[Rfam]
RNA sequence: GAGGGAAGGCCCCUCGGAGCCGGCGAUCAGGAGCGGGCUCCAAACCACUGCGAGCUGCUGCCGUUAAGAGCGGUGGUGGUGAGCGUCGCAGGAAAAGGCGGGAGCAGAUCCCGUCAGGU
Number, nucleotide and partner (000 for none) at each position: 001g015002a014003g013004g012005g011006a000007a000008g000009g000010c000011c005012c004013c003014u002015c001016g041017g040018a039019g038020c037021c036022g000023g034024c033025g000026a000027u000028c000029a000030g000031g000032a000033g024034c023035g000036g021037g020038c019039u018040c017041c016042a000043a000044a000045c000046c118047a000048c091049u090050g089051c088052g087053a086054g080055c079056u000057g077058c076059u075060g000061c073062c072063g071064u070065u000066a000067a000068g000069a000070g064071c063072g062073g061074u000075g059076g058077u057078g000079g055080u054081g000082a000083g000084c000085g000086u053087c052088g051089c050090a049091g048092g000093a000094a000095a000096a000097g115098g114099c113100g112101g111102g110103a000104g000105c000106a000107g000108a000109u000110c102111c101112c100113g099114u098115c097116a000117g000118g046119u000